Small nucleolar RNA snoR104: a 115-nucleotide sequence from Apium graveolens. The base pairs follow the family's consensus structure, which was predicted with WAR. The family's RNA type in Rfam is H/ACA-box small nucleolar RNA. Its family is annotated with nucleolus and RNA processing in the Gene Ontology.
RNA sequence: GGGGAGCAUCUGUAGUCGUAGAUGUUGCCUGAUAUGAGCUUCCUAUAAAGAUUCUGUAAUUUCCUGCUUGCAGCUGUUGAGAAAGUUCACAGGCCUCUAAUUGCAAGAUACAAUG
Numbered sequence: 001g002g003g004g005a006g007c008a009u010c011u012g013u014a015g016u017c018g019u020a021g022a023u024g025u026u027g028c029c030u031g032a033u034a035u036g037a038g039c040u041u042c043c044u045a046u047a048a049a050g051a052u053u054c055u056g057u058a059a060u061u062u063c064c065u066g067c068u069u070g071c072a073g074c075u076g077u078u079g080a081g082a083a084a085g086u087u088c089a090c091a092g093g094c095c096u097c098u099a100a101u102u103g104c105a106a107g108a109u110a111c112a113a114u115g
Base pairs, nucleotide, nucleotide: 001030002029003028005026006025007024008023009022010021011020053108054107055106066094067093068092069091070090073088077084